A member of the RNA family "nadA riboswitch", 64 nucleotides long. Pairs were carried over by alignment from the consensus structure, which is taken from published work. Rfam's curators put it in the seed alignment.
RNA sequence: GGCUGCAACAUCCCCGUGAGCGGGGUAAGCCGGUUUUCCGGCGAGCAGUGCGCUCACUGCAGUC
Dot-bracket structure: (((((((.....[[.((((((((.((..((((......))))..)).])]))))))))))))))